[Rfam]
RNA sequence: GCGGCAGGCCGUGACUGGCGCAUCGAGGUGGGACACCACCGGGGAGCGGCCUGCACCUCCCCGCCGGGCGCCUGGGCACCGCUG
Numbered sequence: 001g002c003g004g005c006a007g008g009c010c011g012u013g014a015c016u017g018g019c020g021c022a023u024c025g026a027g028g029u030g031g032g033a034c035a036c037c038a039c040c041g042g043g044g045a046g047c048g049g050c051c052u053g054c055a056c057c058u059c060c061c062c063g064c065c066g067g068g069c070g071c072c073u074g075g076g077c078a079c080c081g082c083u084g
Stems, first nucleotide, its partner, number of pairs: 004054009015043002017072005028039004063077003

The record is an 84-nucleotide RNA from Geodermatophilus nigrescens, which matches "ZMP/ZTP riboswitch aptamer (pfl RNA motif)" in Rfam. The organism belongs to Geodermatophilus, within Bacteria. It scores 56 bits against the family's covariance model. The base pairs follow the family's consensus structure, which is taken from published work.